[Rfam]
RNA sequence: GACACCCAUGCACCCAUCUCGUGCGGCAGGAGCGGGGGACCCAGGUAAGUCGCCGGUCCGGGGCCAAGUCCCGGCCCGGCUAGGGGUGAAGCCGGUUCCGCGUGUGCGGGCCGGCCGGGCACCUCCCAGCCCGAACCCGACAGCUCACCUCGCAGGCGACGGAGAGGACAU
Dot-bracket structure: ....((......................)).((((((....(........................................)(((.....(((((((.........)))))))..((((........))))...))).........))))))..................
This 171-nucleotide RNA sequence from Streptomyces griseoaurantiacus belongs to the Rfam family "c-di-AMP riboswitch aptamer (ydaO/yuaA leader)".
Gene Ontology terms of the family: regulation of gene expression and cyclic-di-AMP binding.
The source organism's lineage runs through Bacteria, Bacillati, Actinomycetota, Kitasatosporales and Streptomyces griseoaurantiacus.